RNA sequence: GUAGCCCUUUGAUUUUUCAGAACACUGCCAAAUCGACCACUUGAGGUCAUCACUCAACGCUGGCCACAAGCGGCAUGGUGAACCGUCUGGUCGU
Numbered sequence: 001g002u003a004g005c006c007c008u009u010u011g012a013u014u015u016u017u018c019a020g021a022a023c024a025c026u027g028c029c030a031a032a033u034c035g036a037c038c039a040c041u042u043g044a045g046g047u048c049a050u051c052a053c054u055c056a057a058c059g060c061u062g063g064c065c066a067c068a069a070g071c072g073g074c075a076u077g078g079u080g081a082a083c084c085g086u087c088u089g090g091u092c093g094u
Stems, first nucleotide, its partner, number of pairs: 010035005045083001047081006059074004
This 94-nucleotide RNA from Caulobacter vibrioides belongs to the Rfam family "caulobacter sRNA CC0734". The match comes from Rfam's covariance-model search (83 bits). It is annotated as a small RNA. Rfam 15.1 lists 9 matches to the family in 3 species. For this family Rfam cites "Small non-coding RNAs in Caulobacter crescentus" (Landt et al., Mol Microbiol, 2008). The organism belongs to Caulobacter vibrioides, within Bacteria.